[Rfam]
RNA sequence: UAUUCAAUACAGCUCCGAGCUUAAUAUCGCUAAGUUUUUCUAAUAUGUGAAUUAAGCCGCUUAACGUAAAAAAUGUUAAGAAGGGUAAAGUGGGAAACUGCUUUGCCUCCCGUGUUUGGAAAGGAACUAGAAAUGCAACAAC
Numbered sequence: 001u002a003u004u005c006a007a008u009a010c011a012g013c014u015c016c017g018a019g020c021u022u023a024a025u026a027u028c029g030c031u032a033a034g035u036u037u038u039u040c041u042a043a044u045a046u047g048u049g050a051a052u053u054a055a056g057c058c059g060c061u062u063a064a065c066g067u068a069a070a071a072a073a074u075g076u077u078a079a080g081a082a083g084g085g086u087a088a089a090g091u092g093g094g095a096a097a098c099u100g101c102u103u104u105g106c107c108u109c110c111c112g113u114g115u116u117u118g119g120a121a122a123g124g125a126a127c128u129a130g131a132a133a134u135g136c137a138a139c140a141a142c
Base pairs, nucleotide, nucleotide: 004135011128012127014125015124016123019057020056021055022054023053024052025051027050028049029048030047034044035043036042060080061079062078063077064076065075066074067073083108084107085106086105087104088103089102090101091100092099093098109119110118
RNA: Molybdenum/Tungsten riboswitch aptamer (Moco RNA motif)
Organism: Psychromonas sp. psych-6C06